About this RNA: mir-30 microRNA precursor family: a 74-nucleotide sequence from Hymenochirus boettgeri.
[Rfam]
Nucleotides: 074
Stems, first nucleotide, its partner, number of pairs: 002073004010065007018057003024053009
Number, partner (000 for none) and nucleotide at each position: 001000a002073c003072a004071g005070a006000u007000a008000u009000u010065g011064u012063a013062a014061a015060c016059a017000u018057c019056c020055u021000a022000c023000a024053c025052u026051c027050u028049c029048a030047g031046c032045u033000g034000u035000g036000g037000a038000a039000a040000u041000g042000c043000a044000a045032a046031g047030c048029u049028g050027g051026g052025g053024g054000a055020a056019g057018g058000c059016u060015g061014u062013u063012u064011a065010c066000u067000c068000u069000c070005u071004c072003u073002g074000u
On this family, see Lagos-Quintana et al., Science 2001: "Identification of novel genes coding for small expressed RNAs". This family consists of the mammalian microRNA (miRNA) precursor mir-30a. Animal miRNAs are transcribed as ~70nt precursors and subsequently processed by the Dicer enzyme to give a ~22nt product. In this case the mature sequence comes from both the 3' (miR-30) and 5' (mir-97-6) arms of the precursor. The extents of the hairpin precursors are not generally known and are estimated based on hairpin prediction. The products are thought to have regulatory roles through complementarity to mRNA. The involvement of Dicer in miRNA processing suggests a relationship with the phenomenon of RNA interference. miRNAs are numbered based on the sequence of the mature RNA.